[Rfam]
RNA sequence: AAGAAAGUAGGUGCCGCCCCGCACAGGGGCAACGCCAAUAGACCGAUAACAAAACAAGGAAAGGCCACCACCGCAUGAUGACCGACCUGAGCCAUCGACCCGGCGCGCUCAGC
Numbered sequence: 001a002a003g004a005a006a007g008u009a010g011g012u013g014c015c016g017c018c019c020c021g022c023a024c025a026g027g028g029g030c031a032a033c034g035c036c037a038a039u040a041g042a043c044c045g046a047u048a049a050c051a052a053a054a055c056a057a058g059g060a061a062a063g064g065c066c067a068c069c070a071c072c073g074c075a076u077g078a079u080g081a082c083c084g085a086c087c088u089g090a091g092c093c094a095u096c097g098a099c100c101c102g103g104c105g106c107g108c109u110c111a112g113c
Stems, first nucleotide, its partner, number of pairs: 011076004016030005058066002096105002
The record is a 113-nucleotide RNA sequence from Paraburkholderia monticola, which matches "Burkholderia sRNA Bp1_Cand684_SIPHT" in Rfam. The base pairs follow the family's consensus structure, which was predicted with RNAalifold.